[Rfam]
RNA: tRNA
Organism: Bellilinea caldifistulae
Nucleotides: 072
Stems, first nucleotide, its partner, number of pairs: 001071007010025004027043004048064005
Number, partner (000 for none) and nucleotide at each position: 001071g002070c003069c004068u005067c006066c007065g008000u009000a010025g011024u012023u013022c014000a015000a016000g017000g018000g019000a020000u021000a022013g023012a024011a025010c026000a027043g028042c029041a030040c031000c032000c033000u034000c035000a036000c037000g038000a039000a040030g041029u042028g043027u044000g045000a046000a047000u048064g049063c050062g051061g052060g053000u054000u055000c056000g057000a058000a059000u060052c061051c062050c063049g064048c065007c066006g067005g068004a069003g070002g071001c072000g